Notes
Actinobacteria sRNA Ms_IGR-5: a 252-nucleotide RNA sequence from Amycolatopsis sulphurea. It scores 71 bits against the family's covariance model. Rfam classes the family as a small RNA. NCBI's taxonomy places the organism under Bacteria, Bacillati, Actinomycetes, Pseudonocardiaceae, Amycolatopsis.
RNA sequence: ACACGGGAAAGGAGGUGGUCCUAAGUUGUAUUCACACAGGACUCGUGAGGUGGCUGUCCGCUAGCGGAUGGCGCGCGUAAGGGACUUUGAGCAGGGAUACAACCCGAGCCACCUUCGGCUCAUCGCCUGCUUCGCGUGCUGCCUGAGAGUGAAGACCAGGCAGCCAUCGGGCUCCCGGGGUUCCCGAGCACCAGUCCGGCUCGGGCCUGGAUGCAUGACGGCAUUCAGGAGGCACCCCGGGAGUUUCCCUUU
Numbered sequence: 001a002c003a004c005g006g007g008a009a010a011g012g013a014g015g016u017g018g019u020c021c022u023a024a025g026u027u028g029u030a031u032u033c034a035c036a037c038a039g040g041a042c043u044c045g046u047g048a049g050g051u052g053g054c055u056g057u058c059c060g061c062u063a064g065c066g067g068a069u070g071g072c073g074c075g076c077g078u079a080a081g082g083g084a085c086u087u088u089g090a091g092c093a094g095g096g097a098u099a100c101a102a103c104c105c106g107a108g109c110c111a112c113c114u115u116c117g118g119c120u121c122a123u124c125g126c127c128u129g130c131u132u133c134g135c136g137u138g139c140u141g142c143c144u145g146a147g148a149g150u151g152a153a154g155a156c157c158a159g160g161c162a163g164c165c166a167u168c169g170g171g172c173u174c175c176c177g178g179g180g181u182u183c184c185c186g187a188g189c190a191c192c193a194g195u196c197c198g199g200c201u202c203g204g205g206c207c208u209g210g211a212u213g214c215a216u217g218a219c220g221g222c223a224u225u226c227a228g229g230a231g232g233c234a235c236c237c238c239g240g241g242a243g244u245u246u247c248c249c250u251u252u
Stems, first nucleotide, its partner, number of pairs: 014058006059151004065145001067143001069141009169246013183205006
Dot-bracket structure: .............((((((.................................))))))((((..(.(.(((((((((.......................................................))))))))).).)..)))).................(((((((((((((.((((((...........))))))............................)))))))))))))......